[Rfam]
RNA sequence: GUACUCCCUUCGUCCCAUAAUGUAAGACGCCUUUUGACACUAGAUUAGCGUCAAAAAGCGUCUUACAUUAUGGGACGGAGGGAGUAC
Numbered sequence: 001g002u003a004c005u006c007c008c009u010u011c012g013u014c015c016c017a018u019a020a021u022g023u024a025a026g027a028c029g030c031c032u033u034u035u036g037a038c039a040c041u042a043g044a045u046u047a048g049c050g051u052c053a054a055a056a057a058g059c060g061u062c063u064u065a066c067a068u069u070a071u072g073g074g075a076c077g078g079a080g081g082g083a084g085u086a087c
Base pairs, nucleotide, nucleotide: 003085004084005083007081008080009079010078011077013075014074015073016072017071019069020068021067022066023065024064025063026062027061028060029059030058032056033055034054035053036052037051038050040048041047

Shown here is an 87-nucleotide sequence from Aegilops tauschii, a member of the family "MIR1120/MIR1122 microRNA precursor family". It scores 92 bits against the family's covariance model. Pairs were carried over by alignment from the consensus structure, which was predicted with RNAalifold. A reference for the family is Yao et al. (2007), "Cloning and characterization of microRNAs from wheat (Triticum aestivum L.)", Genome Biol.